[Rfam]
This 101-nucleotide RNA from Pelagirhabdus alkalitolerans belongs to the Rfam family "SAM riboswitch aptamer (S box leader)". Taxonomically the source falls in Pelagirhabdus (Bacteria, Bacillota, Bacilli, Caryophanales). A search with the family's covariance model found it, with a score of 95 bits. The family's consensus secondary structure is taken from published work.
RNA sequence: UUCUUAUCCAGAGAGGUGAAGGGACUGGCCCAAUGAAGCCUCGGCAACAGACCAAAUGGUACUGUGCCAAAUCCAGCAAGCAUUUGCUUGAAAGAUAAGAA
Numbered sequence: 001u002u003c004u005u006a007u008c009c010a011g012a013g014a015g016g017u018g019a020a021g022g023g024a025c026u027g028g029c030c031c032a033a034u035g036a037a038g039c040c041u042c043g044g045c046a047a048c049a050g051a052c053c054a055a056a057u058g059g060u061a062c063u064g065u066g067c068c069a070a071a072u073c074c075a076g077c078a079a080g081c082a083u084u085u086g087c088u089u090g091a092a093a094g095a096u097a098a099g100a101a
Base pairs, nucleotide, nucleotide: 001101002100003099004098005097006096007095008094013042014041015040016039017038021031022030023029025076026075027074028073043068044067045066046065048064049063051060052059053058072093077090078089079088080087081086
Dot-bracket structure: ((((((((....(((((...(((.[[[[)))......)))))((((.((.(((....)))..))))))...(]]]](((((....)))))..)))))))))